[Rfam]
RNA: eL15-Euryarchaeota ribosomal protein leader
Nucleotides: 052
Base pairs, nucleotide, nucleotide: 001014002013003012004011005010018048019047020046026042027041028040029039030038
Number, partner (000 for none) and nucleotide at each position: 001014c002013g003012g004011g005010a006000u007000a008000c009000g010005u011004c012003c013002c014001g015000u016000g017000a018048a019047g020046g021000a022000a023000u024000g025000u026042g027041g028040c029039u030038c031000g032000u033000c034000u035000u036000u037000c038030g039029a040028g041027c042026u043000g044000a045000a046020c047019c048018u049000g050000a051000a052000a